[Rfam]
Shown here is a 96-nucleotide RNA sequence from Nicotiana sylvestris, a member of the family "MIR6152 microRNA precursor family". NCBI's taxonomy places the organism under Eukaryota, Streptophyta, Magnoliopsida, Solanaceae, Nicotiana. A search with the family's covariance model found it, with a score of 104 bits.
RNA sequence: UGGACGGAUUAUUGUAUUCGACUGUAUUCACGGUGUAAAACAGAGGAUUACACUGUUUUUAAGCGGAAAGUGAAUCAAUUAACAUAAUAGACUCCU
Numbered sequence: 001u002g003g004a005c006g007g008a009u010u011a012u013u014g015u016a017u018u019c020g021a022c023u024g025u026a027u028u029c030a031c032g033g034u035g036u037a038a039a040a041c042a043g044a045g046g047a048u049u050a051c052a053c054u055g056u057u058u059u060u061a062a063g064c065g066g067a068a069a070g071u072g073a074a075u076c077a078a079u080u081a082a083c084a085u086a087a088u089a090g091a092c093u094c095c096u
Stems, first nucleotide, its partner, number of pairs: 002095003009090007017082002020080002023077002026075006034065003037059007